[Rfam]
RNA sequence: CGCGACGUGGUCGUGCACGACGUCAAAAGAUCUAAGAACCGGGGAGAAAAACCCUUCCCAACCCAACCCCACCCCGCCCCGCCGCACCCCACUUCACGCCCGUCACUCACACGGGUGAGCUUCCCCAACUCGGCUGGAAGUGAGGCCGGUUGUCCGGCAUAUGCUCGCCACACAACCCCAGACGCGCGACGGCCCUCGCCAGGACGGCAAUCCUGAAACGAGGGCCUGACCAACAAGGAAGAAGCAAGCUUCCUG
Numbered sequence: 001c002g003c004g005a006c007g008u009g010g011u012c013g014u015g016c017a018c019g020a021c022g023u024c025a026a027a028a029g030a031u032c033u034a035a036g037a038a039c040c041g042g043g044g045a046g047a048a049a050a051a052c053c054c055u056u057c058c059c060a061a062c063c064c065a066a067c068c069c070c071a072c073c074c075c076g077c078c079c080c081g082c083c084g085c086a087c088c089c090c091a092c093u094u095c096a097c098g099c100c101c102g103u104c105a106c107u108c109a110c111a112c113g114g115g116u117g118a119g120c121u122u123c124c125c126c127a128a129c130u131c132g133g134c135u136g137g138a139a140g141u142g143a144g145g146c147c148g149g150u151u152g153u154c155c156g157g158c159a160u161a162u163g164c165u166c167g168c169c170a171c172a173c174a175a176c177c178c179c180a181g182a183c184g185c186g187c188g189a190c191g192g193c194c195c196u197c198g199c200c201a202g203g204a205c206g207g208c209a210a211u212c213c214u215g216a217a218a219c220g221a222g223g224g225c226c227u228g229a230c231c232a233a234c235a236a237g238g239a240a241g242a243a244g245c246a247a248g249c250u251u252c253c254u255g
Base pairs, nucleotide, nucleotide: 007234008233010231103118104117105116106115107114108113133169135167136166137165191226192225193224194223195222197220198219201214202213203212204211237253238252239251240250241249
RNA: Streptomyces sRNA 4677